[Rfam]
RNA sequence: UCCCCGCUUUUCCUCCCUGAGCGGGUGCCUCGAUGUGUGACAGCAAAAAGGCUUCCCAGCCCGACGUCUUUACGUCGGGCUUUUUUUU
Numbered sequence: 001u002c003c004c005c006g007c008u009u010u011u012c013c014u015c016c017c018u019g020a021g022c023g024g025g026u027g028c029c030u031c032g033a034u035g036u037g038u039g040a041c042a043g044c045a046a047a048a049a050g051g052c053u054u055c056c057c058a059g060c061c062c063g064a065c066g067u068c069u070u071u072a073c074g075u076c077g078g079g080c081u082u083u084u085u086u087u088u
Stems, first nucleotide, its partner, number of pairs: 003025006027052004034045003059080008